Guanidine-I riboswitch aptamer: a 143-nucleotide sequence from Coleofasciculus chthonoplastes. NCBI's taxonomy places the organism under Bacteria, Cyanobacteriota, Coleofasciculaceae, Coleofasciculus, Coleofasciculus chthonoplastes. The match comes from Rfam's covariance-model search (76 bits).
RNA sequence: AGAAUUAGCUUCUAGGGUUCCGAUUUCGGAUUCAACCGCUGAAAUGACUGGUCCAAGAGAAGCAGGCUACCCAAAAAAGAUUUUAUCAAUCCUCACGGAUUACUAAAUCAGUAGCCCCACGGCGGGAGAAAAGCCCGGGAGAU
Numbered sequence: 001a002g003a004a005u006u007a008g009c010u011u012c013u014a015g016g017g018u019u020c021c022g023a024u025u026u027c028g029g030a031u032u033c034a035a036c037c038g039c040u041g042a043a044a045u046g047a048c049u050g051g052u053c054c055a056a057g058a059g060a061a062g063c064a065g066g067c068u069a070c071c072c073a074a075a076a077a078a079g080a081u082u083u084u085a086u087c088a089a090u091c092c093u094c095a096c097g098g099a100u101u102a103c104u105a106a107a108u109c110a111g112u113a114g115c116c117c118c119a120c121g122g123c124g125g126g127a128g129a130a131a132a133g134c135c136c137g138g139g140a141g142a143u
Base pairs, nucleotide, nucleotide: 008063009062010061011060012059015054016053020051021050022048023045024044025043026042027041028040065116066115067114068113069112070111118138120141124136125135126134